RNA sequence: AAAAUAAAGGAGCAAUAACAAUACCCUUGUUAUAACAAGAAAUUGGUUAUUGCUCCUUUAU
Numbered sequence: 001a002a003a004a005u006a007a008a009g010g011a012g013c014a015a016u017a018a019c020a021a022u023a024c025c026c027u028u029g030u031u032a033u034a035a036c037a038a039g040a041a042a043u044u045g046g047u048u049a050u051u052g053c054u055c056c057u058u059u060a061u
Stems, first nucleotide, its partner, number of pairs: 006059012021044001026039004
RNA: Plastid-psbA-4 3UTR RNA
Organism: Passiflora biflora